[Rfam]
RNA sequence: CAAUCAAAUAGACAAACUUAAGGAAAUUUAAGGACGCCAAGCUACAGGGCUUAACUCAAGAUGAUGAUGCUAGCUAGUUGCCAUA
Numbered sequence: 001c002a003a004u005c006a007a008a009u010a011g012a013c014a015a016a017c018u019u020a021a022g023g024a025a026a027u028u029u030a031a032g033g034a035c036g037c038c039a040a041g042c043u044a045c046a047g048g049g050c051u052u053a054a055c056u057c058a059a060g061a062u063g064a065u066g067a068u069g070c071u072a073g074c075u076a077g078u079u080g081c082c083a084u085a
Stems, first nucleotide, its partner, number of pairs: 013036001017032006040079004046075002048071003056064003
Shown here is an 85-nucleotide sequence from Turicibacter sp. HGF1, a member of the family "c-di-GMP-I riboswitch aptamer". NCBI's taxonomy places the organism under Bacteria, Bacillati, Bacillota, Turicibacteraceae, Turicibacter.